[Rfam]
Source information: The family of this 143-nucleotide RNA sequence from Priestia megaterium is "FMN riboswitch aptamer (RFN element)". The source organism's lineage runs through Bacteria, Bacillota, Caryophanales, Bacillaceae and Priestia megaterium. The base pairs follow the family's consensus structure, which is taken from published work.
RNA sequence: GUCUAUCUUCGGGGCAGGGUGAAAUUCCCGACCGGCGGUAAAAAACAAAUUGUUUUGAGCCCGCGAGCUUAUAUGUAAUACAUACGAGCAGAUUUGGUGAAACUCCAAAGCCGACAGUACAGUCUGGAUGGGAGAAGGUGGAG
Numbered sequence: 001g002u003c004u005a006u007c008u009u010c011g012g013g014g015c016a017g018g019g020u021g022a023a024a025u026u027c028c029c030g031a032c033c034g035g036c037g038g039u040a041a042a043a044a045a046c047a048a049a050u051u052g053u054u055u056u057g058a059g060c061c062c063g064c065g066a067g068c069u070u071a072u073a074u075g076u077a078a079u080a081c082a083u084a085c086g087a088g089c090a091g092a093u094u095u096g097g098u099g100a101a102a103c104u105c106c107a108a109a110g111c112c113g114a115c116a117g118u119a120c121a122g123u124c125u126g127g128a129u130g131g132g133a134g135a136a137g138g139u140g141g142a143g
Stems, first nucleotide, its partner, number of pairs: 003141008017029003031123002033113002035064004059111002067089003093109005115126003
Dot-bracket structure: ..((((((((......(((.......))).[[((((((....................[[))))..(((.................)))...(((((.......)))))]])).(((....]]))).......))))))))..